The family of this 245-nucleotide RNA from Monilinia laxa is "Group I catalytic intron". The family's consensus secondary structure is taken from published work. Group I catalytic introns are large self-splicing ribozymes. They catalyse their own excision from mRNA, tRNA and rRNA precursors in a wide range of organisms. The core secondary structure consists of 9 paired regions (P1-P9). These fold to essentially two domains - the P4-P6 domain (formed from the stacking of P5, P4, P6 and P6a helices) and the P3-P9 domain (formed from the P8, P3, P7 and P9 helices). The secondary structure mark-up for this family represents only this conserved core. Group I catalytic introns often have long ORFs inserted in loop regions. The window size for this search is chosen to minimise search time and catch the small examples. A larger window size will find more matches.
RNA sequence: CAGAGCUCCUUUUGAUUUAGCCGAGGCUAUUUACUAACAAAACUCGAUUUGGCCUCGUAAAACAUCGCUAUGUGCUGGAAAACCCUUUUAUUAUAUAGGAUAAUCAGCAGGAAACUAAUAGAUGUAUAAGCAAAAAAAAAGAAAAGAAAUUUUUCAUCUUAAAGGAUCUUCAGAGACUAUACGCGAUGAUUAGACAGGUUUAUCUGUUUAAGAAUAUAUAGUCCAAGCUUACAUGUAAAUGUAAG
Numbered sequence: 001c002a003g004a005g006c007u008c009c010u011u012u013u014g015a016u017u018u019a020g021c022c023g024a025g026g027c028u029a030u031u032u033a034c035u036a037a038c039a040a041a042a043c044u045c046g047a048u049u050u051g052g053c054c055u056c057g058u059a060a061a062a063c064a065u066c067g068c069u070a071u072g073u074g075c076u077g078g079a080a081a082a083c084c085c086u087u088u089u090a091u092u093a094u095a096u097a098g099g100a101u102a103a104u105c106a107g108c109a110g111g112a113a114a115c116u117a118a119u120a121g122a123u124g125u126a127u128a129a130g131c132a133a134a135a136a137a138a139a140a141g142a143a144a145a146g147a148a149a150u151u152u153u154u155c156a157u158c159u160u161a162a163a164g165g166a167u168c169u170u171c172a173g174a175g176a177c178u179a180u181a182c183g184c185g186a187u188g189a190u191u192a193g194a195c196a197g198g199u200u201u202a203u204c205u206g207u208u209u210a211a212g213a214a215u216a217u218a219u220a221g222u223c224c225a226a227g228c229u230u231a232c233a234u235g236u237a238a239a240u241g242u243a244a245g
Stems, first nucleotide, its partner, number of pairs: 005027003009023001012020002031036001063188006073109006084099003110169002115164002120159005173224001175223005190210001192209007230243005